[Rfam]
Annotation:
This 89-nucleotide RNA sequence from Marchantia polymorpha belongs to the Rfam family "Small nucleolar RNA Z103". By type it is a C/D-box small nucleolar RNA. Gene Ontology terms of the family: RNA processing and nucleolus.
RNA sequence: AUGGAAAUGAGGAUCCUUUCCCCGAAUGAUCGAAGCUGAUUCGAACUGUGCGAUUUGCUCUCCGGAGCCAAGCCAGAGAACUGAUCCAU
Numbered sequence: 001a002u003g004g005a006a007a008u009g010a011g012g013a014u015c016c017u018u019u020c021c022c023c024g025a026a027u028g029a030u031c032g033a034a035g036c037u038g039a040u041u042c043g044a045a046c047u048g049u050g051c052g053a054u055u056u057g058c059u060c061u062c063c064g065g066a067g068c069c070a071a072g073c074c075a076g077a078g079a080a081c082u083g084a085u086c087c088a089u
Base pairs, nucleotide, nucleotide: 001089002088003087004086005085